[Rfam]
RNA sequence: AUGAAGGGUUCGGGAGAGAGCCAGAUUGUUGGCCGCCGAAGGUAUAAAUUGUAGCUAUGCCUGUUACAAUUAAGUUCUCAGGCAAAAGGACCGUACCUAGACA
Numbered sequence: 001a002u003g004a005a006g007g008g009u010u011c012g013g014g015a016g017a018g019a020g021c022c023a024g025a026u027u028g029u030u031g032g033c034c035g036c037c038g039a040a041g042g043u044a045u046a047a048a049u050u051g052u053a054g055c056u057a058u059g060c061c062u063g064u065u066a067c068a069a070u071u072a073a074g075u076u077c078u079c080a081g082g083c084a085a086a087a088g089g090a091c092c093g094u095a096c097c098u099a100g101a102c103a
Stems, first nucleotide, its partner, number of pairs: 006098004011093003020033004035083003038079002042077001044075001048070008
The family of this 103-nucleotide RNA sequence from Paramaledivibacter caminithermalis is "Glycine riboswitch aptamer". The family is grouped with related families in Rfam's "Glycine riboswitch clan". Rfam links the family to the GO term glycine biosynthetic process. Lineage of the source: Bacteria > Bacillota > Clostridia > Paramaledivibacter > Paramaledivibacter caminithermalis.